Shown here is an 80-nucleotide RNA, a member of the family "DUF3800-IX RNA".
The family's RNA type in Rfam is small RNA.
Pairs were carried over by alignment from the consensus structure, which is taken from published work.
It is one of the family's seed sequences.
Actinobacteria, Firmicutes (1 example), Nitrospirae, Proteobacteria, Verrucomicrobia (1 example).
RNA sequence: UCCCGCUCCGCGAAAAGUCGCCGACUGUGGCGGCCUGCCCCCUUCACCAGUGAAGGAUCGGGCUAGCGGGGCGGGUUCUG
Numbered sequence: 001u002c003c004c005g006c007u008c009c010g011c012g013a014a015a016a017g018u019c020g021c022c023g024a025c026u027g028u029g030g031c032g033g034c035c036u037g038c039c040c041c042c043u044u045c046a047c048c049a050g051u052g053a054a055g056g057a058u059c060g061g062g063c064u065a066g067c068g069g070g071g072c073g074g075g076u077u078c079u080g
Base pairs, nucleotide, nucleotide: 002075003074004073005072006071008069009068010067011066017034018033019032020031021030022029037063038062039061040060